[Rfam]
RNA sequence: UGGCGGGGGAGCACCACAACCGGAGGAGCCUGCGGUUUAAUUGGACUCAACGCCGGACAUCUCACCAGUCCCGACAGUAAUAACGACGGUCAGCUUGACGAGCUUACCCGAGUUACUGAGAGGAGGUGCAUGGCCGCCGUCAGCUCGUACCGUGAGGCAUCCUGUUAAGUCAGGUAACGAGCGAGACCCGCAUCUGUAGUUGCCAGCGAUACCCUUGUGGUAGUCGGGUACACUACAGAGACCGCCGACGCUAAGUCGGAGGAAGGAACGGGCAACGGUAGGUCAGUAUGCCCCGAAUGGACCGGGCAACACGCGGGCUACAAUGGUCGAGACAAUGGGUUGCGAUACCGAGAGGUAGAGCUAAUCUCCCAAACUCGAUCGUAGUUCGGAUUGAGGGCUGAAACUCGCCCUCAUGAAGCUGGAUUCGGUAGUAAUCGCGUGUCAGAAGCGCGCGGUGAAUACGUCCCUGCUCCUUGCACACACCGCCCGUCAAAGCACCCGAGUGAGGUCCGGAUGAGGCCAUCAUGCGAUGGUCAAAUCUGGGCUUCGCAAGGGGGCUUAAGUCGUAACAAGGUAGCCGUAGAGGAAUCUGCGGCUGGA
Numbered sequence: 001u002g003g004c005g006g007g008g009g010a011g012c013a014c015c016a017c018a019a020c021c022g023g024a025g026g027a028g029c030c031u032g033c034g035g036u037u038u039a040a041u042u043g044g045a046c047u048c049a050a051c052g053c054c055g056g057a058c059a060u061c062u063c064a065c066c067a068g069u070c071c072c073g074a075c076a077g078u079a080a081u082a083a084c085g086a087c088g089g090u091c092a093g094c095u096u097g098a099c100g101a102g103c104u105u106a107c108c109c110g111a112g113u114u115a116c117u118g119a120g121a122g123g124a125g126g127u128g129c130a131u132g133g134c135c136g137c138c139g140u141c142a143g144c145u146c147g148u149a150c151c152g153u154g155a156g157g158c159a160u161c162c163u164g165u166u167a168a169g170u171c172a173g174g175u176a177a178c179g180a181g182c183g184a185g186a187c188c189c190g191c192a193u194c195u196g197u198a199g200u201u202g203c204c205a206g207c208g209a210u211a212c213c214c215u216u217g218u219g220g221u222a223g224u225c226g227g228g229u230a231c232a233c234u235a236c237a238g239a240g241a242c243c244g245c246c247g248a249c250g251c252u253a254a255g256u257c258g259g260a261g262g263a264a265g266g267a268a269c270g271g272g273c274a275a276c277g278g279u280a281g282g283u284c285a286g287u288a289u290g291c292c293c294c295g296a297a298u299g300g301a302c303c304g305g306g307c308a309a310c311a312c313g314c315g316g317g318c319u320a321c322a323a324u325g326g327u328c329g330a331g332a333c334a335a336u337g338g339g340u341u342g343c344g345a346u347a348c349c350g351a352g353a354g355g356u357a358g359a360g361c362u363a364a365u366c367u368c369c370c371a372a373a374c375u376c377g378a379u380c381g382u383a384g385u386u387c388g389g390a391u392u393g394a395g396g397g398c399u400g401a402a403a404c405u406c407g408c409c410c411u412c413a414u415g416a417a418g419c420u421g422g423a424u425u426c427g428g429u430a431g432u433a434a435u436c437g438c439g440u441g442u443c444a445g446a447a448g449c450g451c452g453c454g455g456u457g458a459a460u461a462c463g464u465c466c467c468u469g470c471u472c473c474u475u476g477c478a479c480a481c482a483c484c485g486c487c488c489g490u491c492a493a494a495g496c497a498c499c500c501g502a503g504u505g506a507g508g509u510c511c512g513g514a515u516g517a518g519g520c521c522a523u524c525a526u527g528c529g530a531u532g533g534u535c536a537a538a539u540c541u542g543g544g545c546u547u548c549g550c551a552a553g554g555g556g557g558c559u560u561a562a563g564u565c566g567u568a569a570c571a572a573g574g575u576a577g578c579c580g581u582a583g584a585g586g587a588a589u590c591u592g593c594g595g596c597u598g599g600a
Stems, first nucleotide, its partner, number of pairs: 001480002003477003007474007016464002020428005025321001027319008035310002041056004065305002068302004075118004080113002088108003092104003122294002125292004131288002133283003136279004143182006150157002161174004188271003193239007203228002207226003210222004242262002245259005325380007337368003342361002346357004387418001392413007434456008483573001485570001488566002491563001493560004498555003503550013518535007575598010

The family of this 600-nucleotide part of an RNA from Halomicrobium mukohataei is "Archaeal small subunit ribosomal RNA". The family is grouped with related families in Rfam's "SSU clan". Rfam links the family to the GO terms structural constituent of ribosome and ribosome. Lineage of the source: Archaea > Methanobacteriati > Methanobacteriota > Haloarculaceae > Halomicrobium. The family has 86 seed sequences and 709 matches in Rfam 15.1.